[Rfam]
RNA sequence: GUAGUUAUCCCGGGGUGCUUUGUACCAGGUACAAGGCUGAGAUCACACCCGUAGAACCUGAACAGGGUAAUGCCUGCGAAGGGAAGGUGCAUCAUCUUUAU
Numbered sequence: 001g002u003a004g005u006u007a008u009c010c011c012g013g014g015g016u017g018c019u020u021u022g023u024a025c026c027a028g029g030u031a032c033a034a035g036g037c038u039g040a041g042a043u044c045a046c047a048c049c050c051g052u053a054g055a056a057c058c059u060g061a062a063c064a065g066g067g068u069a070a071u072g073c074c075u076g077c078g079a080a081g082g083g084a085a086g087g088u089g090c091a092u093c094a095u096c097u098u099u100a101u
Base pairs, nucleotide, nucleotide: 006089007088008087009086011051012050013049014048016045017037018036019035020034021033022032023031024030057082058081059080063076064075065074066073

The record is a 101-nucleotide RNA from Limnovirga soli, which matches "TPP riboswitch aptamer (THI element)" in Rfam. Rfam links the family to the GO term thiamine pyrophosphate binding.